[Rfam]
RNA sequence: CCAAAUUAUGGCAAUGGAGCUUGCCAAAACCGCCGUUGAAGAUUGACCUCGCUAAAGUUAGGUUGCCGGGAUUCAAUUCCAGGAUUCAAUGGAUGAUAGCUCCUACGUUCCC
Numbered sequence: 001c002c003a004a005a006u007u008a009u010g011g012c013a014a015u016g017g018a019g020c021u022u023g024c025c026a027a028a029a030c031c032g033c034c035g036u037u038g039a040a041g042a043u044u045g046a047c048c049u050c051g052c053u054a055a056a057g058u059u060a061g062g063u064u065g066c067c068g069g070g071a072u073u074c075a076a077u078u079c080c081a082g083g084a085u086u087c088a089a090u091g092g093a094u095g096a097u098a099g100c101u102c103c104u105a106c107g108u109u110c111c112c
Base pairs, nucleotide, nucleotide: 010025011024012023013022016103017102018101019100020099021098033092034091035090036089037088038087039086040085
RNA: Fluoride riboswitch aptamer (crcB RNA motif)
Organism: Synechococcales cyanobacterium C42_A2020_086